[Rfam]
RNA sequence: AUCCGCUCAGGGCAAACGGCGCGAAAGCGCCGGGCGCAAAGCUAUAGGGGCUAAAGUCUCGUCGGGGCGACCGAUGGCACGUGAAACGGAACGCGGCAUCGCCGACGGGGCCAUGCCAGCCAGCUGCCGGA
Numbered sequence: 001a002u003c004c005g006c007u008c009a010g011g012g013c014a015a016a017c018g019g020c021g022c023g024a025a026a027g028c029g030c031c032g033g034g035c036g037c038a039a040a041g042c043u044a045u046a047g048g049g050g051c052u053a054a055a056g057u058c059u060c061g062u063c064g065g066g067g068c069g070a071c072c073g074a075u076g077g078c079a080c081g082u083g084a085a086a087c088g089g090a091a092c093g094c095g096g097c098a099u100c101g102c103c104g105a106c107g108g109g110g111c112c113a114u115g116c117c118a119g120c121c122a123g124c125u126g127c128c129g130g131a
Stems, first nucleotide, its partner, number of pairs: 012037002017032006040125004047121002049117003056111010
This 131-nucleotide sequence from Hydrogenibacillus schlegelii belongs to the Rfam family "c-di-GMP-I riboswitch aptamer".